[Rfam]
RNA sequence: GAGAGAUGAUGAAUACACUAUUGGUCCGUGUUUCUGAUUACCGUGACUGAUAAACCAGUGUUUUAUUCUGAUCUC
Numbered sequence: 001g002a003g004a005g006a007u008g009a010u011g012a013a014u015a016c017a018c019u020a021u022u023g024g025u026c027c028g029u030g031u032u033u034c035u036g037a038u039u040a041c042c043g044u045g046a047c048u049g050a051u052a053a054a055c056c057a058g059u060g061u062u063u064u065a066u067u068c069u070g071a072u073c074u075c
Stems, first nucleotide, its partner, number of pairs: 001075004
Rfam assigns this 75-nucleotide RNA sequence from Ipomoea nil to the family "Small nucleolar RNA SNORD18". Rfam links the family to the GO terms nucleolus and RNA processing. Pairs were carried over by alignment from the consensus structure, which was predicted with PFOLD. It is annotated as a C/D-box small nucleolar RNA. It scores 42 bits against the family's covariance model. Clan: SNORD18 clan. The family has 16 seed sequences and 2,622 matches in Rfam 15.1.